This 268-nucleotide part of an RNA from Metallosphaera cuprina belongs to the Rfam family "Archaeal large subunit ribosomal RNA".
[Rfam]
RNA sequence: GAGGUCACGUCAGUGGCGAGCCUAAGGUGGUCAGCACCGGAGGCAUAGGGAAACCGAGGAUCCGCAACUUGGGCGACCAAGUGAGGGAUCGGGUCUGUCAGGGCCUUAAGUCACUGGCGUGAGACUAGAAACCGGGCGAUCUAGACCUGGGCAGGUCGAAGUCGGGGGAAACCCCGAUGGAGGACCGAAUAGGGGUUCUGACGUGCAAUUCGUUCCCUUGACCUGGGUCUAGGGGCAAAAGACCAAUCUAGCCCGGUGAUAUCUAGUU
Numbered sequence: 001g002a003g004g005u006c007a008c009g010u011c012a013g014u015g016g017c018g019a020g021c022c023u024a025a026g027g028u029g030g031u032c033a034g035c036a037c038c039g040g041a042g043g044c045a046u047a048g049g050g051a052a053a054c055c056g057a058g059g060a061u062c063c064g065c066a067a068c069u070u071g072g073g074c075g076a077c078c079a080a081g082u083g084a085g086g087g088a089u090c091g092g093g094u095c096u097g098u099c100a101g102g103g104c105c106u107u108a109a110g111u112c113a114c115u116g117g118c119g120u121g122a123g124a125c126u127a128g129a130a131a132c133c134g135g136g137c138g139a140u141c142u143a144g145a146c147c148u149g150g151g152c153a154g155g156u157c158g159a160a161g162u163c164g165g166g167g168g169a170a171a172c173c174c175c176g177a178u179g180g181a182g183g184a185c186c187g188a189a190u191a192g193g194g195g196u197u198c199u200g201a202c203g204u205g206c207a208a209u210u211c212g213u214u215c216c217c218u219u220g221a222c223c224u225g226g227g228u229c230u231a232g233g234g235g236c237a238a239a240a241g242a243c244c245a246a247u248c249u250a251g252c253c254c255g256g257u258g259a260u261a262u263c264u265a266g267u268u
Base pairs, nucleotide, nucleotide: 005122006121007120008119009118010117011116012115013114014113015112016111017110020044021043022042023041026038027037028036029035048055049054060089061088062087063086067082068081069080070079071078072077092105093104094103095102125266126265128263132256133255134254135253136252137251141232142231143230144229145228146227147226148225149224150223151222152220154186155185156184157183161178162177163176164175165174166173167172192217193216194215195214198212200211201210234244235243